[Rfam]
RNA sequence: AGGUCGGGAGGCACUCGGUGGGACGAGGGCCAUGAAUUGACCGAAACCCAACCAUCUCGACUGGGCGGUGUACCGUGGCCCGACGGUGCGCGCG
Number, nucleotide and partner (000 for none) at each position: 001a000002g042003g041004u040005c039006g000007g000008g000009a000010g031011g030012c029013a000014c027015u026016c025017g024018g000019u000020g000021g000022g000023a000024c017025g016026a015027g014028g000029g012030c011031c010032a000033u000034g000035a000036a000037u000038u000039g005040a004041c003042c002043g000044a000045a000046a000047c000048c000049c000050a000051a000052c000053c000054a000055u000056c000057u000058c000059g000060a000061c000062u000063g000064g000065g000066c094067g093068g000069u000070g000071u088072a087073c086074c085075g084076u000077g000078g000079c000080c000081c000082g000083a000084c075085g074086g073087u072088g071089c000090g000091c000092g000093c067094g066
A member of the RNA family "Rhodo-rpoB RNA" from Pseudosulfitobacter pseudonitzschiae, 94 nucleotides long. NCBI's taxonomy places the organism under Bacteria, Pseudomonadota, Alphaproteobacteria, Roseobacteraceae, Pseudosulfitobacter. It is annotated as a cis-regulatory element. It scores 73 bits against the family's covariance model.